[Rfam]
RNA: MIR394 microRNA precursor family
RNA sequence: CUAACAGAGAUCAGUUGGCAGUAUGUCCACCUCCUACUCUCCUCCGUGGAUCGAUCCAUAUGUAGAGCAAUUAGUGGAGGUGGACAGAAUGCCAAUAAACUCUGUAAA
Numbered sequence: 001c002u003a004a005c006a007g008a009g010a011u012c013a014g015u016u017g018g019c020a021g022u023a024u025g026u027c028c029a030c031c032u033c034c035u036a037c038u039c040u041c042c043u044c045c046g047u048g049g050a051u052c053g054a055u056c057c058a059u060a061u062g063u064a065g066a067g068c069a070a071u072u073a074g075u076g077g078a079g080g081u082g083g084a085c086a087g088a089a090u091g092c093c094a095a096u097a098a099a100c101u102c103u104g105u106a107a108a
Stems, first nucleotide, its partner, number of pairs: 011099001015095006024086011